[Rfam]
RNA sequence: UGGUUAAGAAAUGACGUGGCAGACGGAGUGUCACAUCAUCAUAUCUUAUCACAGACACCUCAUUUUCACAUCAUCACCUUCAAUGACAUGACACUGACGUGUUAAUGAUUGGGUGUGUUGACGUGACACUCUGUCUGUCACGUCAUCACUUAACGGAA
Numbered sequence: 001u002g003g004u005u006a007a008g009a010a011a012u013g014a015c016g017u018g019g020c021a022g023a024c025g026g027a028g029u030g031u032c033a034c035a036u037c038a039u040c041a042u043a044u045c046u047u048a049u050c051a052c053a054g055a056c057a058c059c060u061c062a063u064u065u066u067c068a069c070a071u072c073a074u075c076a077c078c079u080u081c082a083a084u085g086a087c088a089u090g091a092c093a094c095u096g097a098c099g100u101g102u103u104a105a106u107g108a109u110u111g112g113g114u115g116u117g118u119u120g121a122c123g124u125g126a127c128a129c130u131c132u133g134u135c136u137g138u139c140a141c142g143u144c145a146u147c148a149c150u151u152a153a154c155g156g157a158a
Base pairs, nucleotide, nucleotide: 001156003154004153005152006151007150008149011146012145013144014143015142016141017140018139019138020137021136022135023134024133025132026131027130028129029128030127031126032125033124034123036121037120038119040117041116042115043114044113045112046111048109049108050107051106054103055102056101057100058099071086072085073084074083
Rfam assigns this 158-nucleotide RNA from Glycine soja to the family "MIR4371 microRNA precursor family". Rfam links the family to the GO terms RISC complex and miRNA-mediated post-transcriptional gene silencing. The organism belongs to Glycine subgen. Soja, within Eukaryota.